[Rfam]
RNA sequence: GGAAUAUAAGAAACUGUCUCUUAACUUUUAACUAAAAAGGCUAAGAACCGGCUCUUAAAGCUCUUAUUUAAGAGCCGACUCUUAGUUUUUUAGUUAAAAGUUAAGAGACGGUUUAUUAUAUUUC
Numbered sequence: 001g002g003a004a005u006a007u008a009a010g011a012a013a014c015u016g017u018c019u020c021u022u023a024a025c026u027u028u029u030a031a032c033u034a035a036a037a038a039g040g041c042u043a044a045g046a047a048c049c050g051g052c053u054c055u056u057a058a059a060g061c062u063c064u065u066a067u068u069u070a071a072g073a074g075c076c077g078a079c080u081c082u083u084a085g086u087u088u089u090u091u092a093g094u095u096a097a098a099a100g101u102u103a104a105g106a107g108a109c110g111g112u113u114u115a116u117u118a119u120a121u122u123u124c
Stems, first nucleotide, its partner, number of pairs: 001124009011114029041085006

Rfam assigns this 124-nucleotide RNA sequence from Brassica carinata to the family "MIR9563 microRNA precursor family". The source organism's lineage runs through Eukaryota, Streptophyta, Gunneridae, malvids and Brassica. The base pairs follow the family's consensus structure, which was predicted with RNAalifold. The family has 2 seed sequences and 5,832 matches in Rfam 15.1.